Overview: Rfam assigns this 102-nucleotide RNA from Alicyclobacillus sp. SO9 to the family "Purine riboswitch aptamer". Riboswitches are metabolite binding domains within certain messenger RNAs that serve as precision sensors for their corresponding targets. The family's consensus secondary structure is taken from published work.
RNA sequence: UUGCUCAUUUCUAUUCUAUCUCGUAUAGUGUCAGGAAUAUGGCCUGACAGUUUCUACAGAGCGACCGCAAAUCGCUUAGCUACGAGGUAAGGUAUACGAGUU
Numbered sequence: 001u002u003g004c005u006c007a008u009u010u011c012u013a014u015u016c017u018a019u020c021u022c023g024u025a026u027a028g029u030g031u032c033a034g035g036a037a038u039a040u041g042g043c044c045u046g047a048c049a050g051u052u053u054c055u056a057c058a059g060a061g062c063g064a065c066c067g068c069a070a071a072u073c074g075c076u077u078a079g080c081u082a083c084g085a086g087g088u089a090a091g092g093u094a095u096a097c098g099a100g101u102u
Base pairs, nucleotide, nucleotide: 018088019087020086021085022084023083024082025081029049030048031047032046033045034044035043059077060076061075062074063073064072